About this RNA: tRNA: an 85-nucleotide RNA sequence from Cytospora leucostoma. It scores 60 bits against the family's covariance model. The organism belongs to Cytospora, within Eukaryota. The base pairs follow the family's consensus structure, which is taken from published work.
RNA sequence: GGGGGCAUGGCGCAGCGGUAGCGCGUCUGCUUUGCAAUAUACUGCUUUCUGCAGAAGGUCAGGGGUUCAAGCCCCCUUGCCUCCA
Dot-bracket structure: (((((((..((((.......)))).(((((....................))))).....(((((.......)))))))))))).